[Rfam]
RNA sequence: ACUCGUGGCCGUCUUUGGGGAGUAGCCUUCCUUCCGCAACGGGAGGAGGACGCGUCAACAUACUCGGCUGGUUAGCCGUGGCGCGUUCGACCGGUCAGGUUUGGCGAGACCAUGGGUGCAUCUUGUCGUUCACGGUCGGACGGCGCGGGAUUGCAUCCUGGUUCGCUGACGUCC
Numbered sequence: 001a002c003u004c005g006u007g008g009c010c011g012u013c014u015u016u017g018g019g020g021a022g023u024a025g026c027c028u029u030c031c032u033u034c035c036g037c038a039a040c041g042g043g044a045g046g047a048g049g050a051c052g053c054g055u056c057a058a059c060a061u062a063c064u065c066g067g068c069u070g071g072u073u074a075g076c077c078g079u080g081g082c083g084c085g086u087u088c089g090a091c092c093g094g095u096c097a098g099g100u101u102u103g104g105c106g107a108g109a110c111c112a113u114g115g116g117u118g119c120a121u122c123u124u125g126u127c128g129u130u131c132a133c134g135g136u137c138g139g140a141c142g143g144c145g146c147g148g149g150a151u152u153g154c155a156u157c158c159u160g161g162u163u164c165g166c167u168g169a170c171g172u173c174c
Stems, first nucleotide, its partner, number of pairs: 030046003048088010065078005093174002
The family of this 174-nucleotide RNA from Caballeronia sp. SBC1 is "Manganese Mn2+ riboswitch aptamer (yybP-ykoY)". For this family Rfam cites "New RNA motifs suggest an expanded scope for riboswitches in bacterial genetic control" (Barrick et al., Proc Natl Acad Sci U S A, 2004). Taxonomically the source falls in Caballeronia (Bacteria, Pseudomonadati, Betaproteobacteria, Burkholderiaceae). This RNA was originally discovered in E. coli during a large scale screen and was named SraF. The family was later found to exist upstream of related families of protein genes in many bacteria, including the the yybP and ykoK genes in B. subtilis. The specific functions of these proteins are unknown, but this structured RNA element may be involved in their genetic regulation as a riboswitch. Its family is annotated with manganese ion binding in the Gene Ontology.